RNA: Manganese Mn2+ riboswitch aptamer (yybP-ykoY)
RNA sequence: GCGGCUGUCAUUGGGGAGUAGCCGCUGCACCCAUUCAGCAGACCUGCGUCAACAGACUUGAGCCUUUGGGCUCAUGGCGCGCGGUAGCCAGGAACCCACGGGUUCCCAGCCUGGCGAGACCUUUGACCAUGCCCCCCGGGUUGCGGCCGGGGGUGGGCAUGGUCAUUGGGUUCUCUCGGCCGCUGAGUGUUU
Numbered sequence: 001g002c003g004g005c006u007g008u009c010a011u012u013g014g015g016g017a018g019u020a021g022c023c024g025c026u027g028c029a030c031c032c033a034u035u036c037a038g039c040a041g042a043c044c045u046g047c048g049u050c051a052a053c054a055g056a057c058u059u060g061a062g063c064c065u066u067u068g069g070g071c072u073c074a075u076g077g078c079g080c081g082c083g084g085u086a087g088c089c090a091g092g093a094a095c096c097c098a099c100g101g102g103u104u105c106c107c108a109g110c111c112u113g114g115c116g117a118g119a120c121c122u123u124u125g126a127c128c129a130u131g132c133c134c135c136c137c138g139g140g141u142u143g144c145g146g147c148c149g150g151g152g153g154u155g156g157g158c159a160u161g162g163u164c165a166u167u168g169g170g171u172u173c174u175c176u177c178g179g180c181c182g183c184u185g186a187g188u189g190u191u192u
Stems, first nucleotide, its partner, number of pairs: 026040003042085003045081007059074005086191003089185002